[Rfam]
RNA sequence: GACCUUUUCAUUAAGCGAUGGACGUCCUAUAUGGGUUUUGCCGGGUUCGCCCGGCUAUGGGGAUAAACGACGGCGUGCAAUAGACGCAGCGGACCCGGGGGCAGUACCCGGCGGCUCCACCAUAAAUGGUGGUGUAUCUGGACACCGUUUCUGACGGGGCCGAACCAGGAUCGACGUGUGUUGAAAAGCGCCGACUAUCUCUCAGCGUGGGCCACUGUGACGGUCUGAAACACAAGUGCCAACGAUAACGAAGCACUCGCUAUUGCGGCCUAACCCCACGGCCUAACGGCCCAAGGUUAGACUAAAAUGCGCGGUUGGACCGCACCGGGCAACAGAAGCGGAAUCC
Numbered sequence: 001g002a003c004c005u006u007u008u009c010a011u012u013a014a015g016c017g018a019u020g021g022a023c024g025u026c027c028u029a030u031a032u033g034g035g036u037u038u039u040g041c042c043g044g045g046u047u048c049g050c051c052c053g054g055c056u057a058u059g060g061g062g063a064u065a066a067a068c069g070a071c072g073g074c075g076u077g078c079a080a081u082a083g084a085c086g087c088a089g090c091g092g093a094c095c096c097g098g099g100g101g102c103a104g105u106a107c108c109c110g111g112c113g114g115c116u117c118c119a120c121c122a123u124a125a126a127u128g129g130u131g132g133u134g135u136a137u138c139u140g141g142a143c144a145c146c147g148u149u150u151c152u153g154a155c156g157g158g159g160c161c162g163a164a165c166c167a168g169g170a171u172c173g174a175c176g177u178g179u180g181u182u183g184a185a186a187a188g189c190g191c192c193g194a195c196u197a198u199c200u201c202u203c204a205g206c207g208u209g210g211g212c213c214a215c216u217g218u219g220a221c222g223g224u225c226u227g228a229a230a231c232a233c234a235a236g237u238g239c240c241a242a243c244g245a246u247a248a249c250g251a252a253g254c255a256c257u258c259g260c261u262a263u264u265g266c267g268g269c270c271u272a273a274c275c276c277c278a279c280g281g282c283c284u285a286a287c288g289g290c291c292c293a294a295g296g297u298u299a300g301a302c303u304a305a306a307a308u309g310c311g312c313g314g315u316u317g318g319a320c321c322g323c324a325c326c327g328g329g330c331a332a333c334a335g336a337a338g339c340g341g342a343a344u345c346c
Base pairs, nucleotide, nucleotide: 040055041054042053043052044051059202060201061200062199063198069195071193073191074190075189076188085180086179087178089177090176091175095111096110097109098108099107112162113161114160115159116158117157118156203217204216205215208227209226210225211224212223213222312327313326314325315324318344321341
A member of the RNA family "Alphaproteobacteria transfer-messenger RNA" from Sphingomonas sp. Root241, 346 nucleotides long. The family's RNA type in Rfam is non-coding RNA gene. Its family is annotated with RNA catabolic process in the Gene Ontology. The base pairs follow the family's consensus structure, which is taken from published work.